[Rfam]
Description: Bacterial large subunit ribosomal RNA: a 351-nucleotide part of an RNA from uncultured candidate division WWE3 bacterium EJ0ADIGA11YD11. Pairs were carried over by alignment from the consensus structure, which is taken from published work.
Nucleotides: 351
Stems, first nucleotide, its partner, number of pairs: 001351004009346008018337003035059005044049001060084006066077004085089001097330007104322002108122003125161008133151001138147003164317004169247003174244002176240005183235003189229002192226007202215001248266006267271001277304001287303006
Number, partner (000 for none) and nucleotide at each position: 001351c002350g003349a004348g005000a006000g007000a008000a009346u010345g011344g012343u013342g014341g015340u016339u017000g018337a019336g020335g021000a022000a023000c024000u025000a026000a027000g028000c029000a030000a031000a032000u033000u034000a035059c036058a037057u038056c039055c040000g041000u042000a043000a044049c045000u046000u047000a048000g049044g050000g051000a052000a053000a054000a055039g056038g057037a058036u059035g060084c061083c062082c063081a064080u065079c066077g067076g068075g069074c070000g071000c072000a073000a074069g075068c076067u077066u078000u079065g080064a081063u082062g083061g084060g085089g086000g087000c088000a089085c090000a091000g092000a093000a094000a095000u096000g097330g098329c099328u100327c101326g102325g103324g104322c105321g106000g107000c108122u109121g110120u111000u112000u113000a114000a115000c116000a117000a118000a119000a120110a121109c122108a123000c124000a125161g126160g127159u128158c129157u130156c131155u132154g133151c134000u135000a136000a137000a138147c139146c140145a141000g142000u143000a144000a145140u146139g147138g148000g149000a150000u151133g152000u153000a154132u155131a156130g157129g158128g159127a160126c161125c162000g163000a164317c165316g166315c167314g168000u169247g170246c171245c172000c173000a174244g175243u176240g177239c178238c179237c180236g181000u182000a183235g184234g185233u186000u187000a188000a189229g190228a191000u192226u193225g194224g195223g196222g197221g198220u199000g200000a201000c202215u203000u204000c205000u206000g207000c208000u209000u210000u211000g212000c213000a214000g215202a216000a217000c218000g219000a220198g221197c222196u223195u224194c225193u226192g227000a228190u229189u230000u231000a232000a233185g234184c235183c236180c237179g238178g239177g240176u241000g242000a243175a244174c245171g246170g247169c248266a249265g250264c251263a252262g253261u254000a255000a256000c257000u258000a259000u260000a261253a262252c263251u264250g265249u266248u267271c268000u269000a270000u271267g272000g273000u274000a275000g276000c277304g278000u279000a280000a281000u282000c283000c284000c285000u286000u287303g288302c289301c290300g291299g292298g293000u294000a295000a296000g297000u298292u299291c300290c301289g302288g303287c304277c305000c306000g307000c308000a309000c310000g311000a312000a313000a314167c315166g316165c317164g318000u319000a320000a321105c322104g323000a324103u325102c326101u327100g328099a329098g330097c331000g332000c333000u334000c335020u336019c337018u338000u339016a340015a341014c342013c343012a344011c345010u346009a347000a348004c349003u350002c351001g